[Rfam]
RNA sequence: UUAUUCCUUCGGGGUAGGGUGAAAUUCCCAACCGGCGGUGAUGAAGUAUGUACUUCUAAGUCCGUGACCCGUGUGGUUGUAUAACGAUACGGUGGAUCUGGUGCGAAUCCGGAACCGACAGUAAAGUCUGGAUGGGAGAAGGAAUUU
Numbered sequence: 001u002u003a004u005u006c007c008u009u010c011g012g013g014g015u016a017g018g019g020u021g022a023a024a025u026u027c028c029c030a031a032c033c034g035g036c037g038g039u040g041a042u043g044a045a046g047u048a049u050g051u052a053c054u055u056c057u058a059a060g061u062c063c064g065u066g067a068c069c070c071g072u073g074u075g076g077u078u079g080u081a082u083a084a085c086g087a088u089a090c091g092g093u094g095g096a097u098c099u100g101g102u103g104c105g106a107a108u109c110c111g112g113a114a115c116c117g118a119c120a121g122u123a124a125a126g127u128c129u130g131g132a133u134g135g136g137a138g139a140a141g142g143a144a145u146u147u
Stems, first nucleotide, its partner, number of pairs: 003145008017029003031127002033117002035065004060115002069092004097113005119130003
RNA: FMN riboswitch aptamer (RFN element)
Organism: Ornithinibacillus caprae